A member of the RNA family "Small nucleolar RNA SNORA73 family" from Ochotona princeps, 204 nucleotides long.
Rfam links the family to the GO terms RNA processing and nucleolus.
U17 (SNORA73A and SNORA73B) also known as E1 belongs to the H/ACA class of small nucleolar RNAs (snoRNAs). Vertebrate U17 is intron-encoded and ranges in length from 200-230 nucleotides, longer than most snoRNAs. It is one of the most abundant snoRNAs in human cells and is essential for the cleavage of pre-rRNA within the 5' external transcribed spacer (ETS). This cleavage leads to the formation of 18S rRNA. Regions of the U17 RNA are complementary to rRNA and act as guides for RNA/RNA interactions, although these regions do not seem to be well conserved between organisms.
Its Rfam clan is "snR30-U17 clan".
The family has 66 seed sequences and 2,326 matches in Rfam 15.1.
By type it is an H/ACA-box small nucleolar RNA.
RNA sequence: CCAACGUGGGCAUCCCGGGAGGUCACUCUCCCCGGGCCCUGUCCUGGUGGCACAUGGGAGCUGAGGGCUCUGCCCCGUGACGUACAGUCCCCUUCCACGACGUUGGAGAGAAAGCCGGGCCUUCGGGUCUGCGCCUGCAUAUUCCUACAGCUUCCCAGAGUCCAUGGACCGUGACUGGGGAGACAAACCAUGCAGGAAACAGCU
Numbered sequence: 001c002c003a004a005c006g007u008g009g010g011c012a013u014c015c016c017g018g019g020a021g022g023u024c025a026c027u028c029u030c031c032c033c034g035g036g037c038c039c040u041g042u043c044c045u046g047g048u049g050g051c052a053c054a055u056g057g058g059a060g061c062u063g064a065g066g067g068c069u070c071u072g073c074c075c076c077g078u079g080a081c082g083u084a085c086a087g088u089c090c091c092c093u094u095c096c097a098c099g100a101c102g103u104u105g106g107a108g109a110g111a112a113a114g115c116c117g118g119g120c121c122u123u124c125g126g127g128u129c130u131g132c133g134c135c136u137g138c139a140u141a142u143u144c145c146u147a148c149a150g151c152u153u154c155c156c157a158g159a160g161u162c163c164a165u166g167g168a169c170c171g172u173g174a175c176u177g178g179g180g181a182g183a184c185a186a187a188c189c190a191u192g193c194a195g196g197a198a199a200c201a202g203c204u
Stems, first nucleotide, its partner, number of pairs: 001106007008044005014036003018029004047098004056091004060085001065078001134196007151182006160169003
Dot-bracket structure: ((((((((((((.(((.((((....))))....)))...)))))..((((.....(((((....(............)......)..))))...)))).)))))))...........................(((((((..........((((((...(((....))).......)))))).......)))))))........

The source organism's lineage runs through Eukaryota, Eumetazoa, Sarcopterygii, Theria and Ochotona. The sequence is in the family's curated seed alignment.